The family of this 54-nucleotide RNA from Sphaerisporangium rubeum is "L17-Actino-Proteobacteria ribosomal protein leader". The family's RNA type in Rfam is cis-regulatory leader.

RNA sequence: CCGCGGGUUCGGUGGCCCCCGGCCCGACCCCGGUACCUGAUACGGCCGGAGCGG
Numbered sequence: 001c002c003g004c005g006g007g008u009u010c011g012g013u014g015g016c017c018c019c020c021g022g023c024c025c026g027a028c029c030c031c032g033g034u035a036c037c038u039g040a041u042a043c044g045g046c047c048g049g050a051g052c053g054g
Stems, first nucleotide, its partner, number of pairs: 001022003005018005024054003028051001030049005